[Rfam]
RNA sequence: UCAACGUGAUGACACACUUAUUAGUUUAAACUUUUCUUUCUGGCAUCUCUAAUGUUAGGGCAUAUUAUCGUGUGCUCAAUGAAUACAAAAAUUGACAAUUAUCUGAAA
Numbered sequence: 001u002c003a004a005c006g007u008g009a010u011g012a013c014a015c016a017c018u019u020a021u022u023a024g025u026u027u028a029a030a031c032u033u034u035u036c037u038u039u040c041u042g043g044c045a046u047c048u049c050u051a052a053u054g055u056u057a058g059g060g061c062a063u064a065u066u067a068u069c070g071u072g073u074g075c076u077c078a079a080u081g082a083a084u085a086c087a088a089a090a091a092u093u094g095a096c097a098a099u100u101a102u103c104u105g106a107a108a
Stems, first nucleotide, its partner, number of pairs: 059076007
This 108-nucleotide RNA sequence from Brettanomyces naardenensis belongs to the Rfam family "Small nucleolar RNA snR48". Gene Ontology terms of the family: RNA processing and nucleolus. Its Rfam clan is "SNORD60 clan". Lineage of the source: Eukaryota > Dikarya > saccharomyceta > Pichiomycetes > Brettanomyces. A search with the family's covariance model found it, with a score of 64 bits. It is annotated as a C/D-box small nucleolar RNA.